[Rfam]
Nucleotides: 107
Stems, first nucleotide, its partner, number of pairs: 006104006013097006020090003024086002027083002030080003
Number, partner (000 for none) and nucleotide at each position: 001000u002000u003000g004000a005000a006104a007103a008102a009101c010100a011099u012000a013097a014096u015095u016094g017093a018092g019000c020090g021089c022088a023000a024086c025085g026000c027083u028082g029000g030080u031079g032078u033000a034000a035000g036000u037000u038000g039000c040000u041000u042000u043000a044000g045000u046000c047000c048000a049000u050000g051000c052000a053000a054000c055000a056000a057000u058000g059000g060000a061000c062000a063000a064000a065000a066000g067000a068000a069000a070000a071000g072000u073000a074000a075000a076000u077000u078032a079031c080030a081000u082028c083027a084000a085025c086024g087000c088022u089021g090020c091000a092018c093017u094016c095015a096014a097013u098000g099011a100010u101009g102008u103007u104006u105000a106000u107000u